The family of this 108-nucleotide RNA sequence from Neobacillus piezotolerans is "SAM riboswitch aptamer (S box leader)". NCBI's taxonomy places the organism under Bacteria, Bacillati, Bacillota, Bacilli, Neobacillus. A search with the family's covariance model found it, with a score of 93 bits.
RNA sequence: CUCUUAUCCAGAGUGACGGAGGGUCAGGCCCUAUGAAGUCCGGCAACCUUCAGGCGAAAGCUUGAAAAGGUGCUAAUUCCUGCAGGCAUUUUGCCUGGAAGAUAAGAG
Numbered sequence: 001c002u003c004u005u006a007u008c009c010a011g012a013g014u015g016a017c018g019g020a021g022g023g024u025c026a027g028g029c030c031c032u033a034u035g036a037a038g039u040c041c042g043g044c045a046a047c048c049u050u051c052a053g054g055c056g057a058a059a060g061c062u063u064g065a066a067a068a069g070g071u072g073c074u075a076a077u078u079c080c081u082g083c084a085g086g087c088a089u090u091u092u093g094c095c096u097g098g099a100a101g102a103u104a105a106g107a108g
Stems, first nucleotide, its partner, number of pairs: 001108008013041001015040003021031003025082004042074004047070002049066004078100001083097006